The record is a 37-nucleotide RNA sequence from Pilimelia terevasa, which matches "CRISPR RNA direct repeat element" in Rfam.
Taxonomically the source falls in Pilimelia (Bacteria, Actinomycetes, Micromonosporales, Micromonosporaceae).
Rfam links the family to the GO term defense response.

[Rfam]
RNA sequence: GCAGCGCUGGCGGUACGCCGCCGGCGAGGAUCUCAAC
Numbered sequence: 001g002c003a004g005c006g007c008u009g010g011c012g013g014u015a016c017g018c019c020g021c022c023g024g025c026g027a028g029g030a031u032c033u034c035a036a037c
Stems, first nucleotide, its partner, number of pairs: 005026009